This 98-nucleotide sequence from Treponema denticola belongs to the Rfam family "TD-2 RNA". Rfam 15.1 lists 310 matches to the family in 11 species. NCBI's taxonomy places the organism under Bacteria, Spirochaetota, Spirochaetia, Treponema, Treponema denticola. Rfam's curators put it in the seed alignment.
[Rfam]
Nucleotides: 098
Stems, first nucleotide, its partner, number of pairs: 002017005032058011061094001063092003068087007
Number, partner (000 for none) and nucleotide at each position: 001000a002017c003016c004015g005014u006013c007000a008000c009000g010000g011000a012000u013006g014005g015004c016003g017002g018000c019000a020000g021000u022000u023000c024000c025000a026000c027000g028000c029000u030000c031000g032058c033057a034056a035055g036054u037053u038052u039051u040050a041049g042048c043000c044000u045000g046000c047000g048042g049041c050040u051039a052038a053037a054036a055035c056034u057033u058032g059000a060000a061094g062000a063092u064091u065090a066000a067000a068087a069086a070085u071084g072083u073082a074081c075000a076000a077000g078000a079000a080000u081074g082073u083072a084071c085070a086069u087068u088000c089000a090065u091064a092063a093000a094061c095000g096000g097000a098000c